[Rfam]
RNA sequence: ACACAGAAACUGCUUGGCAGAAGCGGGGGAACCACUUUCCGGUCCCGGUCCGUCCGGGUCCUUGGGGUUAAGCCGCAGGGGCGUCCGCGCCCCGCGACCGGGUGUCUCCCACCCGAACCCGACAGCUCACCUCGUAGGCAAAGGGAGGAACA
Numbered sequence: 001a002c003a004c005a006g007a008a009a010c011u012g013c014u015u016g017g018c019a020g021a022a023g024c025g026g027g028g029g030a031a032c033c034a035c036u037u038u039c040c041g042g043u044c045c046c047g048g049u050c051c052g053u054c055c056g057g058g059u060c061c062u063u064g065g066g067g068u069u070a071a072g073c074c075g076c077a078g079g080g081g082c083g084u085c086c087g088c089g090c091c092c093c094g095c096g097a098c099c100g101g102g103u104g105u106c107u108c109c110c111a112c113c114c115g116a117a118c119c120c121g122a123c124a125g126c127u128c129a130c131c132u133c134g135u136a137g138g139c140a141a142a143g144g145g146a147g148g149a150a151c152a
Stems, first nucleotide, its partner, number of pairs: 004020001023135006033064002065120003074096003100114004
Shown here is a 152-nucleotide RNA sequence from Kocuria flava, a member of the family "c-di-AMP riboswitch aptamer (ydaO/yuaA leader)".
NCBI's taxonomy places the organism under Bacteria, Actinomycetota, Actinomycetes, Micrococcales, Kocuria.
Pairs were carried over by alignment from the consensus structure.
This family represents a conserved RNA structure found upstream of the ydaO and yuaA genes in Bacillus subtilis and related genes in other bacteria.